[Rfam]
RNA sequence: GGAAGUUUGAGGGGGGCUGCUCCUAGUACGAGAGGACCGGAGUGGACUGACCUCUGGUGUACCGGUUGUCACGCCAGUGGCAUUGCCGGGUAGCUAAGUCGGGAAUAGAUAAGCGCUGAAAGCAUCUAAGCGCGAAACUAGCCUCAAGAUGAGACUUCCCUAGGUCUAUAAGACCUCUAAAGGAUCGUUCGAGACCAGGACGUUGAUAGGUCGGGUGUGGAAGCGCAGUAAUGCGUUAAGCUAACCGAUACUAAUUGCCCGUGAG
Numbered sequence: 001g002g003a004a005g006u007u008u009g010a011g012g013g014g015g016g017c018u019g020c021u022c023c024u025a026g027u028a029c030g031a032g033a034g035g036a037c038c039g040g041a042g043u044g045g046a047c048u049g050a051c052c053u054c055u056g057g058u059g060u061a062c063c064g065g066u067u068g069u070c071a072c073g074c075c076a077g078u079g080g081c082a083u084u085g086c087c088g089g090g091u092a093g094c095u096a097a098g099u100c101g102g103g104a105a106u107a108g109a110u111a112a113g114c115g116c117u118g119a120a121a122g123c124a125u126c127u128a129a130g131c132g133c134g135a136a137a138c139u140a141g142c143c144u145c146a147a148g149a150u151g152a153g154a155c156u157u158c159c160c161u162a163g164g165u166c167u168a169u170a171a172g173a174c175c176u177c178u179a180a181a182g183g184a185u186c187g188u189u190c191g192a193g194a195c196c197a198g199g200a201c202g203u204u205g206a207u208a209g210g211u212c213g214g215g216u217g218u219g220g221a222a223g224c225g226c227a228g229u230a231a232u233g234c235g236u237u238a239a240g241c242u243a244a245c246c247g248a249u250a251c252u253a254a255u256u257g258c259c260c261g262u263g264a265g
Stems, first nucleotide, its partner, number of pairs: 001159008011145004017045007047102005055096003062089005067082006106140003113133005162176005179262001182260002185257001186202005207253003210249005217241001220237001223236005
RNA: Bacterial large subunit ribosomal RNA, nucleotides 2613 to 2877
Organism: Chitinibacter fontanus